[Rfam]
RNA sequence: AUACUUACCUGGACGGGGUCAAUGGGCGAUCAUGAAGACCCAUGGCCUAGGUUGGUGACUUCUAUUGCACUUAGGAAGGGUGCCAACCUAAGGUCUACCCAAGUGGUGGAGCCUACGUCAUAAUUUGUGGCAGUGGGGGCUUGCGUUCGCGCAGCCCCUAU
Dot-bracket structure: ...........((((((((((.((((............))))))))))(((.(.(((.(((((..........)).))).)))..)))).((((((.((.....)).))).))).))))..............(((((...((((....))))..))))).

Notes: Shown here is a 161-nucleotide RNA from Ipomoea nil, a member of the family "U1 spliceosomal RNA". A search with the family's covariance model found it, with a score of 149 bits. Lineage of the source: Eukaryota > eudicotyledons > Solanales > Convolvulaceae > Ipomoea. A reference for the family is Charenton et al. (2019), "Mechanism of 5' splice site transfer for human spliceosome activation", Science. The family's consensus secondary structure is taken from published work.